[Rfam]
The family of this 583-nucleotide part of an RNA from Lwoffella lincolnii is "Bacterial small subunit ribosomal RNA".
Pairs were carried over by alignment from the consensus structure, which is taken from published work.
Its family is annotated with structural constituent of ribosome and ribosome in the Gene Ontology.

RNA sequence: UGACGGGGGCCCGCACAAGCGGUGGAGCAUGUGGUUUAAUUCGAUGCAACGCGAAGAACCUUACCUGGUCUUGACAUAGUGAGAAUCUUGCAGAGAUGCGAGAGUGCCUUUGGGAAUUCACAUACAGGUGCUGCAUGGCUGUCGUCAGCUCGUGUCGUGAGAUGUUGGGUUAAGUCCCGCAACGAGCGCAACCCUUUUCCUUAGUUACCAGCGACUUGGUCGGGGACUUUAAGGACACUGCCAGUGACAAACUGGAGGAAGGCGGGGACGACGUCAAGUCAUCAUGGCCCUUACGACCAGGGCUACACACGUGCUACAAUGGUAGGUACAGAGGGCAGCUACACGGCGACGUGAUGCCAAUCUCAAAAAGCCUAUCUUAGUCCAGAUUGGAGUCUGCAACUCGACUCCAUGAAGUCGGAAUCGCUAGUAAUCGCGGAUCAGAAUGCCGCGGUGAAUACGUUCCCGGGCCUUGUACACACCGCCCGUCACACCAUGGGAGUUGAUUGCACCAGAAGUGGUUAGCCUAACUUAGGAGGGCGAUCACCACGGUGUGGUUAAUGACUGGGGUGAAGUCGUAACAAGG
Numbered sequence: 001u002g003a004c005g006g007g008g009g010c011c012c013g014c015a016c017a018a019g020c021g022g023u024g025g026a027g028c029a030u031g032u033g034g035u036u037u038a039a040u041u042c043g044a045u046g047c048a049a050c051g052c053g054a055a056g057a058a059c060c061u062u063a064c065c066u067g068g069u070c071u072u073g074a075c076a077u078a079g080u081g082a083g084a085a086u087c088u089u090g091c092a093g094a095g096a097u098g099c100g101a102g103a104g105u106g107c108c109u110u111u112g113g114g115a116a117u118u119c120a121c122a123u124a125c126a127g128g129u130g131c132u133g134c135a136u137g138g139c140u141g142u143c144g145u146c147a148g149c150u151c152g153u154g155u156c157g158u159g160a161g162a163u164g165u166u167g168g169g170u171u172a173a174g175u176c177c178c179g180c181a182a183c184g185a186g187c188g189c190a191a192c193c194c195u196u197u198u199c200c201u202u203a204g205u206u207a208c209c210a211g212c213g214a215c216u217u218g219g220u221c222g223g224g225g226a227c228u229u230u231a232a233g234g235a236c237a238c239u240g241c242c243a244g245u246g247a248c249a250a251a252c253u254g255g256a257g258g259a260a261g262g263c264g265g266g267g268a269c270g271a272c273g274u275c276a277a278g279u280c281a282u283c284a285u286g287g288c289c290c291u292u293a294c295g296a297c298c299a300g301g302g303c304u305a306c307a308c309a310c311g312u313g314c315u316a317c318a319a320u321g322g323u324a325g326g327u328a329c330a331g332a333g334g335g336c337a338g339c340u341a342c343a344c345g346g347c348g349a350c351g352u353g354a355u356g357c358c359a360a361u362c363u364c365a366a367a368a369a370g371c372c373u374a375u376c377u378u379a380g381u382c383c384a385g386a387u388u389g390g391a392g393u394c395u396g397c398a399a400c401u402c403g404a405c406u407c408c409a410u411g412a413a414g415u416c417g418g419a420a421u422c423g424c425u426a427g428u429a430a431u432c433g434c435g436g437a438u439c440a441g442a443a444u445g446c447c448g449c450g451g452u453g454a455a456u457a458c459g460u461u462c463c464c465g466g467g468c469c470u471u472g473u474a475c476a477c478a479c480c481g482c483c484c485g486u487c488a489c490a491c492c493a494u495g496g497g498a499g500u501u502g503a504u505u506g507c508a509c510c511a512g513a514a515g516u517g518g519u520u521a522g523c524c525u526a527a528c529u530u531a532g533g534a535g536g537g538c539g540a541u542c543a544c545c546a547c548g549g550u551g552u553g554g555u556u557a558a559u560g561a562c563u564g565g566g567g568u569g570a571a572g573u574c575g576u577a578a579c580a581a582g583g
Stems, first nucleotide, its partner, number of pairs: 001476002003473003007470007015460002019424005024317001026315008034306002040055004064301007077124002079121005086103007105116001107114002127290002130288004136284002138279003141275001143273002148187006154163003166179004193267004198235007208224002212222003238258002241255005321376007333364003338357002343352003383414001388409007430452007479582001481579001484575002489569004494564003499559012515544006522538004528533001